[Rfam]
RNA sequence: UCACGGGAGAGGAGGUGGUCCAGAUAAUGAAGUCUUCUUGGACGCGUGAGGUGGCUGUCCGCUAGUCGCCCUGACCUCGGACGGAUUGCACCGGACCGACGCCGCACGGCGGCAGCGAGUUCUGGCAGUCACCGCAGCCCGUGGGUGUCGUGCCCGUCCAGCACGACGCACCGGUCACGACCGGUAGCCCACGGGCUGUCCCAU
Dot-bracket structure: .............((((((..................................))))))((((..(.(((....(............................)...))))..)))).................((((((((((((.((((((.......))))))....................))))))))))))......
Numbered sequence: 001u002c003a004c005g006g007g008a009g010a011g012g013a014g015g016u017g018g019u020c021c022a023g024a025u026a027a028u029g030a031a032g033u034c035u036u037c038u039u040g041g042a043c044g045c046g047u048g049a050g051g052u053g054g055c056u057g058u059c060c061g062c063u064a065g066u067c068g069c070c071c072u073g074a075c076c077u078c079g080g081a082c083g084g085a086u087u088g089c090a091c092c093g094g095a096c097c098g099a100c101g102c103c104g105c106a107c108g109g110c111g112g113c114a115g116c117g118a119g120u121u122c123u124g125g126c127a128g129u130c131a132c133c134g135c136a137g138c139c140c141g142u143g144g145g146u147g148u149c150g151u152g153c154c155c156g157u158c159c160a161g162c163a164c165g166a167c168g169c170a171c172c173g174g175u176c177a178c179g180a181c182c183g184g185u186a187g188c189c190c191a192c193g194g195g196c197u198g199u200c201c202c203a204u
Stems, first nucleotide, its partner, number of pairs: 014059006060117004066111001068110003075104001135198012148166006
Shown here is a 204-nucleotide sequence from Actinotalea bogoriensis, a member of the family "Actinobacteria sRNA Ms_IGR-5".
A search with the family's covariance model found it, with a score of 81 bits.